[Rfam]
RNA: Small nucleolar RNA snoR111
Organism: Carnegiea gigantea
RNA sequence: UAUAUUGACGGGAGAUGCAUUUCCAAUUUCUUCCGUCAAUUGAUUUGAUUAUCAAAAGAGGCAAAAUCGAAAAUUUGAGACGAGAUAUCGUUUCAGUCGUCAUAGUGUCUUCUCUGAGUUGACGAUUCGAUUGUUGACUCGUCCACAU
Numbered sequence: 001u002a003u004a005u006u007g008a009c010g011g012g013a014g015a016u017g018c019a020u021u022u023c024c025a026a027u028u029u030c031u032u033c034c035g036u037c038a039a040u041u042g043a044u045u046u047g048a049u050u051a052u053c054a055a056a057a058g059a060g061g062c063a064a065a066a067u068c069g070a071a072a073a074u075u076u077g078a079g080a081c082g083a084g085a086u087a088u089c090g091u092u093u094c095a096g097u098c099g100u101c102a103u104a105g106u107g108u109c110u111u112c113u114c115u116g117a118g119u120u121g122a123c124g125a126u127u128c129g130a131u132u133g134u135u136g137a138c139u140c141g142u143c144c145a146c147a148u
Base pairs, nucleotide, nucleotide: 002044003043005039006038007037008036009035010034011033012032013031014030015029079143081141082140083139084138087131088130089129090128096126097125098124099123100122101121102120